[Rfam]
RNA sequence: CUGAUUGCAGCUGCAGCAUCAUCAAGAUUCUCAUACAUACACCAAGCAUCAUUAUGUAUGUGGAUUCAAUUACACGAAUAUGCUUAGACUUGAUGAUUUGUGAAUCUUGAUGAUGCUCCAACAGCGAACAG
Numbered sequence: 001c002u003g004a005u006u007g008c009a010g011c012u013g014c015a016g017c018a019u020c021a022u023c024a025a026g027a028u029u030c031u032c033a034u035a036c037a038u039a040c041a042c043c044a045a046g047c048a049u050c051a052u053u054a055u056g057u058a059u060g061u062g063g064a065u066u067c068a069a070u071u072a073c074a075c076g077a078a079u080a081u082g083c084u085u086a087g088a089c090u091u092g093a094u095g096a097u098u099u100g101u102g103a104a105u106c107u108u109g110a111u112g113a114u115g116c117u118c119c120a121a122c123a124g125c126g127a128a129c130a131g
Stems, first nucleotide, its partner, number of pairs: 010122001012120002015117016032100002
Background:
The family of this 131-nucleotide RNA from Brassica rapa is "mir-172 microRNA precursor family". Its family is annotated with miRNA-mediated post-transcriptional gene silencing and RISC complex in the Gene Ontology. The family has 11 seed sequences and 2,076 matches in Rfam 15.1. mir-172 has been experimentally verified in Arabidopsis thaliana. A reference for the family is Jones-Rhoades and Bartel (2004), "Computational Identification of Plant MicroRNAs and Their Targets, Including a Stress-Induced miRNA", Mol Cell. Taxonomically the source falls in Brassica (Eukaryota, Mesangiospermae, Brassicaceae, Brassiceae).